[Rfam]
RNA sequence: ACAGAAUUCCCCGGAGAAGGAACUCCGGGAAAAUAGAAUAAAAAGAAAUUAAGAUAGUAAUAGGAAUGAACGAAUAUGUUUCAAU
Numbered sequence: 001a002c003a004g005a006a007u008u009c010c011c012c013g014g015a016g017a018a019g020g021a022a023c024u025c026c027g028g029g030a031a032a033a034u035a036g037a038a039u040a041a042a043a044a045g046a047a048a049u050u051a052a053g054a055u056a057g058u059a060a061u062a063g064g065a066a067u068g069a070a071c072g073a074a075u076a077u078g079u080u081u082c083a084a085u
Stems, first nucleotide, its partner, number of pairs: 007031002010029007068081004
This 85-nucleotide RNA from Musa ornata belongs to the Rfam family "Plastid-rpl20 3UTR RNA". Taxonomically the source falls in Musa (Eukaryota, Euphyllophyta, Mesangiospermae, Liliopsida). The family has 270 seed sequences and 587 matches in Rfam 15.1. Rfam describes the family as follows. Plastid rpl20 is a non-coding RNA (ncRNA) recognised in plastids. It was found in the three prime untranslated region (3UTR) of rpl20 gene, it presence in the 3UTR region sugest a role in transcript maduration.